[Rfam]
RNA: serC leader
Organism: Fulvimarina pelagi
RNA sequence: CAGUGGGACACGCCUCCCCAACGAGGCGCGCCUAUCUGAAAGGGUAGUCAAG
Numbered sequence: 001c002a003g004u005g006g007g008a009c010a011c012g013c014c015u016c017c018c019c020a021a022c023g024a025g026g027c028g029c030g031c032c033u034a035u036c037u038g039a040a041a042g043g044g045u046a047g048u049c050a051a052g
Base pairs, nucleotide, nucleotide: 011028012027013026014025015024016023032047033046034045035044036043037042